[Rfam]
A member of the RNA family "mir-172 microRNA precursor family" from Rhododendron williamsianum, 111 nucleotides long. NCBI's taxonomy places the organism under Eukaryota, Tracheophyta, Gunneridae, Ericoideae, Rhododendron. The family's consensus secondary structure was predicted with PFOLD. For this family Rfam cites "Computational Identification of Plant MicroRNAs and Their Targets, Including a Stress-Induced miRNA" (Jones-Rhoades and Bartel, Mol Cell, 2004). Rfam describes the family as follows. mir-172 has been experimentally verified in Arabidopsis thaliana. This family is thought to target mRNAs coding for APETALA2-like transcription factors.

RNA sequence: GUUUUUGCGUUUGGAGCAUCAUCAAGAUUCACAUUAACCAUUUUUAGACCAUUCGCUGCAAUGGCUAUAUCUUGAUAAUGAGAAUCCUGAUGAUGCUGCAGCGGCAAUGAG
Number, nucleotide and partner (000 for none) at each position: 001g000002u000003u000004u000005u000006u000007g000008c000009g000010u000011u101012u100013g099014g000015a097016g096017c095018a094019u093020c092021a091022u090023c089024a088025a000026g086027a085028u084029u083030c082031a000032c080033a079034u000035u000036a000037a000038c000039c000040a000041u000042u000043u000044u000045u000046a000047g000048a000049c000050c000051a000052u000053u000054c000055g000056c000057u000058g000059c000060a000061a000062u000063g000064g000065c000066u000067a000068u000069a000070u000071c000072u000073u000074g000075a000076u000077a000078a000079u033080g032081a000082g030083a029084a028085u027086c026087c000088u024089g023090a022091u021092g020093a019094u018095g017096c016097u015098g000099c013100a012101g011102c000103g000104g000105c000106a000107a000108u000109g000110a000111g000